[Rfam]
RNA: mir-2774 microRNA precursor family
Organism: Bombyx mori
RNA sequence: ACAGCAUUCGGACCGUCGGUCUACCGAGCAAUAUCACCCGCGAGGUGGAAGACCAUCCCGCCGUUGU
Numbered sequence: 001a002c003a004g005c006a007u008u009c010g011g012a013c014c015g016u017c018g019g020u021c022u023a024c025c026g027a028g029c030a031a032u033a034u035c036a037c038c039c040g041c042g043a044g045g046u047g048g049a050a051g052a053c054c055a056u057c058c059c060g061c062c063g064u065u066g067u
Stems, first nucleotide, its partner, number of pairs: 004064002010058003015053003020049006028041002